Shown here is a 279-nucleotide sequence from Salinibacillus xinjiangensis, a member of the family "BsrG". Rfam's curators write: bsrE, bsrG and bsrH pair through intermolecular interactions with antisense sRNAs. They form type I toxin/antitoxin system that includes an mRNA encoding for a short, toxic peptide (bsrE, bsrG and bsrH) and an antitoxin that is comprised of an antisense RNA. bsrG encodes a 39-amino-acid toxin, and the 180 nucleotide antisense sRNA called SR4 acts as the antitoxin (they overlap by 123 nucleotides). SR4 interaction with the 3'UTR of bsrG RNA promotes bsrG degradation and inhibits its translation. BsrG interferes with cell envelope biosynthesis, causes membrane invaginations and delocalisation of the cell wall synthesis and initiates autolysis. bsrE RNA encodes 30 amino-acid toxin peptide. Gene Ontology terms of the family: toxin activity and autolysis. By type it is a small RNA.

[Rfam]
RNA sequence: AUAAGGAUAACGUUCUUUUAGGGUGGGUCGGCUCAACCCCGAUGAAAGGGGGUGAUGCCUCUGAGCAUAUUUGAGACGCUUAUGGUGUUGUUCGCAUUUGGCACCUUUCUUAUCGGAUUGCUCACGUUGAUUGUGACGUUAAUCAAACACGAUCGACAUGAAAAAUAGACCCCCCUAUUAGCCCGACAAAGUUAUUAGGGUGAGGUCUAUUCACUAUGAGUAGCCGAACCCCCCUGGGGGAACCGCUUAUCCUAUAGACCACAGUGCUCGCUGUGGUCU
Dot-bracket structure: (...((.(...((((.(.(((((..(.(....(((.((((........))))))).......(.(..((......(((..........)))..........(............)...))..).)..........................................).)..)))))...).........((....................))...........))))((((...))))).))...).......((((((((((....))))))))))

The base pairs follow the family's consensus structure, which was predicted with WAR. The match comes from Rfam's covariance-model search (58 bits).